[Rfam]
RNA sequence: GGAUCGGGAGGCCGCUGGUGGGCAGGGGCCGGGAAUGGAUCCGAAACUCGACCAUCUCGAGAGGGCGCGAUGCCGGGGCCCGACGGCAUUGGCG
Numbered sequence: 001g002g003a004u005c006g007g008g009a010g011g012c013c014g015c016u017g018g019u020g021g022g023c024a025g026g027g028g029c030c031g032g033g034a035a036u037g038g039a040u041c042c043g044a045a046a047c048u049c050g051a052c053c054a055u056c057u058c059g060a061g062a063g064g065g066c067g068c069g070a071u072g073c074c075g076g077g078g079c080c081c082g083a084c085g086g087c088a089u090u091g092g093c094g
Base pairs, nucleotide, nucleotide: 001042002041003040004039005038010030011029012028013027015025016024017023066094067093068092070090071088072087073086074085075084
Dot-bracket structure: (((((....((((.(((.....))).)))).......))))).......................(((.((((((........))))).).)))
Shown here is a 94-nucleotide RNA from Salinihabitans flavidus, a member of the family "Rhodo-rpoB RNA". By type it is a cis-regulatory element. The family's consensus secondary structure is taken from published work. The match comes from Rfam's covariance-model search (69 bits).